[Rfam]
RNA: mir-450 microRNA precursor family
RNA sequence: ACAGAAUUAUCUUUGCAGUUUGUUCCUGAAUCCAUAGCAGAAGUGUAUUGGGAAUAUUUUGCAUGCGUAGUUUUGUAUC
Numbered sequence: 001a002c003a004g005a006a007u008u009a010u011c012u013u014u015g016c017a018g019u020u021u022g023u024u025c026c027u028g029a030a031u032c033c034a035u036a037g038c039a040g041a042a043g044u045g046u047a048u049u050g051g052g053a054a055u056a057u058u059u060u061g062c063a064u065g066c067g068u069a070g071u072u073u074u075g076u077a078u079c
Base pairs, nucleotide, nucleotide: 004073005072006071007070008069009068010067014063015062016061017060018059021056022055023054024053025052026051027050029049030048031047033045034044